RNA sequence: AUGUUCGGGUAAUCGCUGCAACGCUUGACGUUGUUGAGGAAAGUCCAUGCUCGCACAGUCCUGAGAUGGCUGUAGUGUUCGUGCCUAGCGAAGUCAUAAGCUAGGGUAGUCUGUUAAAAGGCUAACGGCAGGGAACUAGCCUAAGUCCUUCUGGAUAUGGCUUUACUACCUUUAAAGUGCCACAGUGACGUAGUCCUCGAAGAAAUGAGAGGAGUGGAACGAGGUAAACCCCACGAGCGAGAAACCCAAAUAAUGGUAGGGGAAUCCUUUCGAAGGAAUUGAACUUAGAAAGGGACAGAGUUACUACUCUGUAGAUAGAUGAUUACCACCGGAGUACGAGGUUAAAAGCCGUCUGUAGUACGAAGGGACAAAACAUGGCUUACAGAA
Numbered sequence: 001a002u003g004u005u006c007g008g009g010u011a012a013u014c015g016c017u018g019c020a021a022c023g024c025u026u027g028a029c030g031u032u033g034u035u036g037a038g039g040a041a042a043g044u045c046c047a048u049g050c051u052c053g054c055a056c057a058g059u060c061c062u063g064a065g066a067u068g069g070c071u072g073u074a075g076u077g078u079u080c081g082u083g084c085c086u087a088g089c090g091a092a093g094u095c096a097u098a099a100g101c102u103a104g105g106g107u108a109g110u111c112u113g114u115u116a117a118a119a120g121g122c123u124a125a126c127g128g129c130a131g132g133g134a135a136c137u138a139g140c141c142u143a144a145g146u147c148c149u150u151c152u153g154g155a156u157a158u159g160g161c162u163u164u165a166c167u168a169c170c171u172u173u174a175a176a177g178u179g180c181c182a183c184a185g186u187g188a189c190g191u192a193g194u195c196c197u198c199g200a201a202g203a204a205a206u207g208a209g210a211g212g213a214g215u216g217g218a219a220c221g222a223g224g225u226a227a228a229c230c231c232c233a234c235g236a237g238c239g240a241g242a243a244a245c246c247c248a249a250a251u252a253a254u255g256g257u258a259g260g261g262g263a264a265u266c267c268u269u270u271c272g273a274a275g276g277a278a279u280u281g282a283a284c285u286u287a288g289a290a291a292g293g294g295a296c297a298g299a300g301u302u303a304c305u306a307c308u309c310u311g312u313a314g315a316u317a318g319a320u321g322a323u324u325a326c327c328a329c330c331g332g333a334g335u336a337c338g339a340g341g342u343u344a345a346a347a348g349c350c351g352u353c354u355g356u357a358g359u360a361c362g363a364a365g366g367g368a369c370a371a372a373a374c375a376u377g378g379c380u381u382a383c384a385g386a387a
Base pairs, nucleotide, nucleotide: 004387005386006385007383008327009326010325011324012323013322014321016036018034019033020032021031041381042380043379045378046377047376048375049374050241051240052239053238054237055073056072057071058070060069061068079236080235081234082233083232084105085104086103087102088101089100106126107124108123109122110121111120112119127231128230130171131170132169138162139161140160141159145156146155147154177229178228179225180224181223194213195212196211197210198209201206245261246260247259265294266293267292268291269290270289271288295312296311297310298309299308300307329366330365334361335360336359337358